[Rfam]
RNA: Small nucleolar RNA SNORA31
RNA sequence: UCGCAUCCACUGGUAGACCCGGAACAAUCUGCUGUUGUUCUUUUGGUUUGCACUAGGAUGCAAGAGAAAGGAAUCAUGCACUUUUUGUCUUUGUGCAGCCCAGGCCGAAUCAGGGAAUAUACCA
Numbered sequence: 001u002c003g004c005a006u007c008c009a010c011u012g013g014u015a016g017a018c019c020c021g022g023a024a025c026a027a028u029c030u031g032c033u034g035u036u037g038u039u040c041u042u043u044u045g046g047u048u049u050g051c052a053c054u055a056g057g058a059u060g061c062a063a064g065a066g067a068a069a070g071g072a073a074u075c076a077u078g079c080a081c082u083u084u085u086u087g088u089c090u091u092u093g094u095g096c097a098g099c100c101c102a103g104g105c106c107g108a109a110u111c112a113g114g115g116a117a118u119a120u121a122c123c124a
Stems, first nucleotide, its partner, number of pairs: 003061006011052002014050006022040007074115002077112002081107001084104004089098002